The record is a 115-nucleotide RNA from Puma concolor, which matches "Small nucleolar RNA SNORA51" in Rfam. From the family's description: ACA51 is a member of the H/ACA class of snoRNA that guide the sites of modification of uridines to pseudouridines.
[Rfam]
RNA sequence: GGGGCUUACCCCAGGCUGUAUUCUUAUACUGACUGCACAGAAAGGAGUAAAUCCACCCAUCUACACCACAGCCCAGGCCUUUUGCCUGGUCUGUACUACGAAUGGGAGGGCAUGG
Numbered sequence: 001g002g003g004g005c006u007u008a009c010c011c012c013a014g015g016c017u018g019u020a021u022u023c024u025u026a027u028a029c030u031g032a033c034u035g036c037a038c039a040g041a042a043a044g045g046a047g048u049a050a051a052u053c054c055a056c057c058c059a060u061c062u063a064c065a066c067c068a069c070a071g072c073c074c075a076g077g078c079c080u081u082u083u084g085c086c087u088g089g090u091c092u093g094u095a096c097u098a099c100g101a102a103u104g105g106g107a108g109g110g111c112a113u114g115g
Stems, first nucleotide, its partner, number of pairs: 012035003018029004056106005069093003073089006

By type it is an H/ACA-box small nucleolar RNA. The match comes from Rfam's covariance-model search (86 bits). Gene Ontology terms of the family: nucleolus and RNA processing.